[Rfam]
RNA sequence: GGCAGACCACCGCCUAAUCGUCCGCAAGGACGUGCCGGGGAACCAAGUCAGUGGGGUGAAUCCGCGCAAGCGGUAGGGAUCGCUUCCAUCCCGAACCCGUCAGCUAACUCGGUCGGCGGUCAACUGGAAGGAA
Numbered sequence: 001g002g003c004a005g006a007c008c009a010c011c012g013c014c015u016a017a018u019c020g021u022c023c024g025c026a027a028g029g030a031c032g033u034g035c036c037g038g039g040g041a042a043c044c045a046a047g048u049c050a051g052u053g054g055g056g057u058g059a060a061u062c063c064g065c066g067c068a069a070g071c072g073g074u075a076g077g078g079a080u081c082g083c084u085u086c087c088a089u090c091c092c093g094a095a096c097c098c099g100u101c102a103g104c105u106a107a108c109u110c111g112g113u114c115g116g117c118g119g120u121c122a123a124c125u126g127g128a129a130g131g132a133a
Stems, first nucleotide, its partner, number of pairs: 011118004019032004034113006044053002054098003062073004076092004
Dot-bracket structure: ..........((((....((((......)))).((((((....((......))(((.....((((....))))..((((.........))))...))).........)))))).))))...............
RNA: c-di-AMP riboswitch aptamer (ydaO/yuaA leader)
Organism: Paractinoplanes tereljensis